A member of the RNA family "Flavo-1 RNA" from Flavobacterium sp. ALD4, 76 nucleotides long. It is annotated as a small RNA. The match comes from Rfam's covariance-model search (67 bits).
[Rfam]
RNA sequence: CUUUAGCCCAGAUGGAAACGACAUCCUUUUGUGCCAGGGUUUGGCACCAAAGAUAUAGUGUACAGCUGGAAAUGGG
Numbered sequence: 001c002u003u004u005a006g007c008c009c010a011g012a013u014g015g016a017a018a019c020g021a022c023a024u025c026c027u028u029u030u031g032u033g034c035c036a037g038g039g040u041u042u043g044g045c046a047c048c049a050a051a052g053a054u055a056u057a058g059u060g061u062a063c064a065g066c067u068g069g070a071a072a073u074g075g076g
Stems, first nucleotide, its partner, number of pairs: 009068003013064002018059002023054003029049001031047006